[Rfam]
RNA sequence: AACAGACUAGCGCGGGGUUAAUGGAAGGUCGCCUCAGUGGCGGCAGCGCUUUUGGCGUGGGUUCCUUCUUCCCGGAGUCUGUUUUUUA
Number, nucleotide and partner (000 for none) at each position: 001a083002a082003c081004a080005g079006a078007c077008u000009a000010g000011c075012g000013c074014g073015g072016g071017g000018u000019u000020a000021a000022u000023g069024g068025a067026a066027g065028g044029u043030c042031g041032c040033c039034u000035c000036a000037g000038u000039g033040g032041c031042g030043g029044c028045a000046g000047c057048g056049c055050u000051u000052u000053u000054g000055g049056c048057g047058u000059g000060g000061g000062u000063u000064c000065c027066u026067u025068c024069u023070u000071c016072c015073c014074g013075g011076a000077g007078u006079c005080u004081g003082u002083u001084u000085u000086u000087u000088a000

Notes: Rfam assigns this 88-nucleotide RNA sequence from Desulfofundulus salinus to the family "DUF3800-VII RNA". It is annotated as a small RNA. The organism belongs to Desulfofundulus, within Bacteria.